Group II catalytic intron D1-D4-2: a 127-nucleotide RNA sequence from Ideonella aquatica. About the family: Group II introns are found in rRNA, tRNA and mRNA of organelles in fungi, plants and protists, and also in mRNA in bacteria. The literature on the family includes a 2001 paper in Trends Genet by Bonen and Vogel, "The ins and outs of group II introns".
Nucleotides: 127
Stems, first nucleotide, its partner, number of pairs: 001015005016041006023034003045127002049091001051089003054080002057077003061073004
Number, partner (000 for none) and nucleotide at each position: 001015g002014g003013g004012a005011g006000u007000u008000g009000g010000c011005c012004u013003c014002c015001c016041g017040a018039a019038g020037c021036c022000a023034g024033c025032u026000g027000g028000c029000a030000g031000g032025a033024g034023c035000a036021g037020g038019c039018u040017u041016c042000a043000a044000a045127c046126c047000a048000c049091c050000u051089g052088g053087u054080g055079c056000u057077g058076c059075u060000g061073c062072g063071u064070u065000c066000a067000a068000u069000g070064g071063g072062c073061g074000u075059g076058g077057u078000g079055g080054u081000g082000a083000g084000c085000u086000g087053a088052c089051c090000u091049g092000c093000c094000c095000c096000c097000c098000a099000c100000c101000c102000u103000c104000c105000g106000u107000a108000c109000c110000a111000a112000u113000c114000a115000g116000a117000a118000g119000u120000a121000g122000c123000a124000a125000g126046g127045g
The match comes from Rfam's covariance-model search (68 bits). Rfam 15.1 lists 1,231 matches to the family in 625 species.